The record is a 147-nucleotide RNA sequence from Pandoraea thiooxydans, which matches "Burkholderia sRNA 7" in Rfam. From the family's description: Did not show any change in expression in iron-depletion and hydrogen peroxide (oxidative stress) treatment. Constitutively expressed. Possibly targets the GTPase, ObgE. A search with the family's covariance model found it, with a score of 59 bits. A reference for the family is Ghosh et al. (2017), "Identification of novel small RNAs in Burkholderia cenocepacia KC-01 expressed under iron limitation and oxidative stress conditions", Microbiology. The source organism's lineage runs through Bacteria, Betaproteobacteria, Burkholderiales, Burkholderiaceae and Pandoraea.
RNA sequence: GUAUGCUUCGCCCAUGAACUGCCUCCAGACCUUUAUCCGACGUCGCCGUACGUUGCUCCCUCCGGGGCGCCGCGCGGCUCGUCUUGGAUUGCGCUGAACGCAGUCAGCAAACAUACGAAGGCCACGGGCGAUCCCCGUGGCCUUUAU
Numbered sequence: 001g002u003a004u005g006c007u008u009c010g011c012c013c014a015u016g017a018a019c020u021g022c023c024u025c026c027a028g029a030c031c032u033u034u035a036u037c038c039g040a041c042g043u044c045g046c047c048g049u050a051c052g053u054u055g056c057u058c059c060c061u062c063c064g065g066g067g068c069g070c071c072g073c074g075c076g077g078c079u080c081g082u083c084u085u086g087g088a089u090u091g092c093g094c095u096g097a098a099c100g101c102a103g104u105c106a107g108c109a110a111a112c113a114u115a116c117g118a119a120g121g122c123c124a125c126g127g128g129c130g131a132u133c134c135c136c137g138u139g140g141c142c143u144u145u146a147u
Stems, first nucleotide, its partner, number of pairs: 005112001007110002010094002013091001018090001030087002038081003042078003045073002048070002053065001118144010